[Rfam]
RNA sequence: UGUUUGAGAAAUAUUAUGCCAAAGACAGUAAGGGCGUUAAGCUUGAAAAUCUUACCGAGGAAUAAAAAAAUAACAAGUCUUUUAUCCCUCGCAAGUAGAGGGAUUUUAUUAUGGCAUA
Numbered sequence: 001u002g003u004u005u006g007a008g009a010a011a012u013a014u015u016a017u018g019c020c021a022a023a024g025a026c027a028g029u030a031a032g033g034g035c036g037u038u039a040a041g042c043u044u045g046a047a048a049a050u051c052u053u054a055c056c057g058a059g060g061a062a063u064a065a066a067a068a069a070a071u072a073a074c075a076a077g078u079c080u081u082u083u084a085u086c087c088c089u090c091g092c093a094a095g096u097a098g099a100g101g102g103a104u105u106u107u108a109u110u111a112u113g114g115c116a117u118a
Stems, first nucleotide, its partner, number of pairs: 028055006034042002085103006
Dot-bracket structure: ...........................((((((((.....)).......)))))).............................((((((.......))))))...............

Shown here is a 118-nucleotide RNA sequence from Clostridium sp. CAG:302, a member of the family "Ribosomal protein L10 leader". Taxonomically the source falls in Clostridium (Bacteria, Bacillati, Bacillota, Clostridia). About the family: This family is a putative r-protein leader autoregulatory structure found in B. subtilis and other low-GC Gram-positive bacteria. It is located in the 5' untranslated regions of mRNAs encoding ribosomal proteins L10 and L12 (rplJ-rplL). The base pairs follow the family's consensus structure, which was predicted with CMfinder.